About this RNA: The family of this 92-nucleotide sequence from Canis lupus is "mir-8799 microRNA precursor family". The source organism's lineage runs through Eukaryota, Metazoa, Tetrapoda, Eutheria and Canis lupus.

RNA sequence: AGGGGAAGCGCAGGAUCCUGGGCUGUGUCCCCGGUGCCCUGUGCUCCCGGGCCUGCGCUGCUGGAAUCGUGCUCCAGGCCAUGCAGCCCCCU
Numbered sequence: 001a002g003g004g005g006a007a008g009c010g011c012a013g014g015a016u017c018c019u020g021g022g023c024u025g026u027g028u029c030c031c032c033g034g035u036g037c038c039c040u041g042u043g044c045u046c047c048c049g050g051g052c053c054u055g056c057g058c059u060g061c062u063g064g065a066a067u068c069g070u071g072c073u074c075c076a077g078g079c080c081a082u083g084c085a086g087c088c089c090c091c092u
Stems, first nucleotide, its partner, number of pairs: 001092005010084002013080002017078002020075003024071004028065002031063001032060006041053001043052003

Rfam links the family to the GO terms miRNA-mediated post-transcriptional gene silencing and RISC complex. The family's consensus secondary structure was predicted with RNAalifold.